[Rfam]
Shown here is a 194-nucleotide RNA from Serratia symbiotica, a member of the family "Lysine riboswitch aptamer".
It scores 95 bits against the family's covariance model.
Pairs were carried over by alignment from the consensus structure, which is taken from published work.
RNA sequence: CAAGCCAGAAGAGGUGCAUCGCCCAGGUAAGGUGUCAGAGGAACCGUUUUCCAAUGACGGCACUAGAGGGGGUGCGAUGCCGAGAUAGGAUGAUGCACGGCGAUCAUCGUAUCGGCUACAGGGGCUGAAUCCCCUGAGUUGUCACCAAGAUCACCCCUAUGGGGCGGUCAGCAAGGUGGAGCGCUCCUGGGUGU
Numbered sequence: 001c002a003a004g005c006c007a008g009a010a011g012a013g014g015u016g017c018a019u020c021g022c023c024c025a026g027g028u029a030a031g032g033u034g035u036c037a038g039a040g041g042a043a044c045c046g047u048u049u050u051c052c053a054a055u056g057a058c059g060g061c062a063c064u065a066g067a068g069g070g071g072g073u074g075c076g077a078u079g080c081c082g083a084g085a086u087a088g089g090a091u092g093a094u095g096c097a098c099g100g101c102g103a104u105c106a107u108c109g110u111a112u113c114g115g116c117u118a119c120a121g122g123g124g125c126u127g128a129a130u131c132c133c134c135u136g137a138g139u140u141g142u143c144a145c146c147a148a149g150a151u152c153a154c155c156c157c158u159a160u161g162g163g164g165c166g167g168u169c170a171g172c173a174a175g176g177u178g179g180a181g182c183g184c185u186c187c188u189g190g191g192u193g194u
Stems, first nucleotide, its partner, number of pairs: 006189003010185002016080007024072001031064006084113004089108006114140004119136006142179005